[Rfam]
RNA sequence: UGCCUAACCCUCGUGGAUAAAACCAUCAGGUAUGGCGCUAAGCCCUCGACAGCAACAAGCUCUCUCCAGAGCGCUGUCGAGGCUAUCUAUCGAAAGGUAGGUAGGUGGUGUAAACCAUC
Numbered sequence: 001u002g003c004c005u006a007a008c009c010c011u012c013g014u015g016g017a018u019a020a021a022a023c024c025a026u027c028a029g030g031u032a033u034g035g036c037g038c039u040a041a042g043c044c045c046u047c048g049a050c051a052g053c054a055a056c057a058a059g060c061u062c063u064c065u066c067c068a069g070a071g072c073g074c075u076g077u078c079g080a081g082g083c084u085a086u087c088u089a090u091c092g093a094a095a096g097g098u099a100g101g102u103a104g105g106u107g108g109u110g111u112a113a114a115c116c117a118u119c
Stems, first nucleotide, its partner, number of pairs: 001037004009030003013026003044082010059072005084103008104119006

The record is a 119-nucleotide RNA, which matches "LOOT RNA" in Rfam. By type it is a small RNA. It is one of the family's seed sequences. The base pairs follow the family's consensus structure, which is taken from published work.